[Rfam]
RNA sequence: CUAGCGGCGCCGCGAGGUGCCGCGAGGGGCCGGCAGAAGUCAGCCGAGGCCAUAGUAGUCGCCGGCACAGGGCGGCGAAGGGC
Dot-bracket structure: ((.((((((((....))))))))..))............((....)).(((......((((((.......))))))....)))

Description: A member of the RNA family "Group II catalytic intron D1-D4-1" from Sediminicurvatus halobius, 83 nucleotides long. A search with the family's covariance model found it, with a score of 70 bits.